[Rfam]
RNA sequence: AGUAGGCAAGAUGUUGGCAUAGCUGAAUGUGAUUCGAAUUCAGCUACGCCACAUCCGGCCAGCU
Numbered sequence: 001a002g003u004a005g006g007c008a009a010g011a012u013g014u015u016g017g018c019a020u021a022g023c024u025g026a027a028u029g030u031g032a033u034u035c036g037a038a039u040u041c042a043g044c045u046a047c048g049c050c051a052c053a054u055c056c057g058g059c060c061a062g063c064u
Stems, first nucleotide, its partner, number of pairs: 005060003011054004016050003022044005
The family of this 64-nucleotide RNA sequence from Trichinella zimbabwensis is "mir-72 microRNA precursor family". The base pairs follow the family's consensus structure, which was predicted with RNAalifold. The family is grouped with related families in Rfam's "mir-31 microRNA precursor family". A search with the family's covariance model found it, with a score of 64 bits. Its family is annotated with RISC complex and miRNA-mediated post-transcriptional gene silencing in the Gene Ontology.